[Rfam]
RNA sequence: AGCUGGUCUGAAGGUAGUGUUAUCUCAAUUGAUUGUUCACAGUCAGUACAGAUUGAACUCCUUGUUCUACUCUUUCCCCCCUUCUCACUACUGUACUUGACUAGUCUUUA
Numbered sequence: 001a002g003c004u005g006g007u008c009u010g011a012a013g014g015u016a017g018u019g020u021u022a023u024c025u026c027a028a029u030u031g032a033u034u035g036u037u038c039a040c041a042g043u044c045a046g047u048a049c050a051g052a053u054u055g056a057a058c059u060c061c062u063u064g065u066u067c068u069a070c071u072c073u074u075u076c077c078c079c080c081c082u083u084c085u086c087a088c089u090a091c092u093g094u095a096c097u098u099g100a101c102u103a104g105u106c107u108u109u110a
Stems, first nucleotide, its partner, number of pairs: 002105007010098002014094002016089004042071001045068002

Y RNA: a 110-nucleotide sequence from Cavia porcellus.
The family's consensus secondary structure is taken from published work.
The match comes from Rfam's covariance-model search (54 bits).
The family has 104 seed sequences and 26,986 matches in Rfam 15.1.
Y RNAs are components of the Ro ribonucleoprotein particle (Ro RNP), in association with Ro60 and La proteins.
By type it is a non-coding RNA gene.